[Rfam]
Nucleotides: 102
Stems, first nucleotide, its partner, number of pairs: 019087007030048006058078007
Number, partner (000 for none) and nucleotide at each position: 001000c002000g003000u004000a005000a006000a007000u008000a009000a010000g011000c012000g013000a014000a015000u016000u017000u018000u019087g020086c021085u022084c023083g024082u025081a026000u027000a028000u029000c030048a031047u032046c033045g034044g035043g036000a037000a038000u039000a040000g041000g042000g043035c044034c045033c046032g047031a048030u049000c050000g051000u052000c053000u054000c055000u056000a057000c058078c059077c060076g061075g062074a063073a064072a065000c066000c067000u068000u069000a070000a071000a072064u073063u074062u075061u076060c077059g078058g079000a080000c081025u082024a083023c084022g085021a086020g087019c088000u089000c090000u091000u092000g093000g094000a095000u096000c097000a098000a099000g100000c101000a102000g
Shown here is a 102-nucleotide RNA from Cohnella xylanilytica, a member of the family "Purine riboswitch aptamer". Taxonomically the source falls in Cohnella (Bacteria, Bacillati, Bacilli, Paenibacillaceae). Rfam links the family to the GO term purine nucleobase biosynthetic process. The literature on the family includes a 2003 paper in Cell by Mandal et al., "Riboswitches Control Fundamental Biochemical Pathways in Bacillus subtilis and Other Bacteria".